[Rfam]
RNA sequence: UGAAACGGCGCUCGAGAUCGUCUCUUGCGCCGCGAAGAACAGCGAGGUAUAGCGAAAAACGAAGGCCGAGAUAUCGUUUCAGUCGUCAUUUGUUAUUGGUUGGCGAUUCGAUUGUUGCUCGUCCACAU
Numbered sequence: 001u002g003a004a005a006c007g008g009c010g011c012u013c014g015a016g017a018u019c020g021u022c023u024c025u026u027g028c029g030c031c032g033c034g035a036a037g038a039a040c041a042g043c044g045a046g047g048u049a050u051a052g053c054g055a056a057a058a059a060c061g062a063a064g065g066c067c068g069a070g071a072u073a074u075c076g077u078u079u080c081a082g083u084c085g086u087c088a089u090u091u092g093u094u095a096u097u098g099g100u101u102g103g104c105g106a107u108u109c110g111a112u113u114g115u116u117g118c119u120c121g122u123c124c125a126c127a128u
Stems, first nucleotide, its partner, number of pairs: 001029002007022004064124002067121004073112004082107007090099002